[Rfam]
RNA sequence: CUCGGGGCGGGGGGGGGGGUGUCCUCAGCCCAGACUGCGAGAGGGCACAGGCCAGGCCGAGGGACCCCACCGGUGCACG
Numbered sequence: 001c002u003c004g005g006g007g008c009g010g011g012g013g014g015g016g017g018g019g020u021g022u023c024c025u026c027a028g029c030c031c032a033g034a035c036u037g038c039g040a041g042a043g044g045g046c047a048c049a050g051g052c053c054a055g056g057c058c059g060a061g062g063g064a065c066c067c068c069a070c071c072g073g074u075g076c077a078c079g
Stems, first nucleotide, its partner, number of pairs: 004076001006074001008072003016068005022063005028057003033052001035050003039046001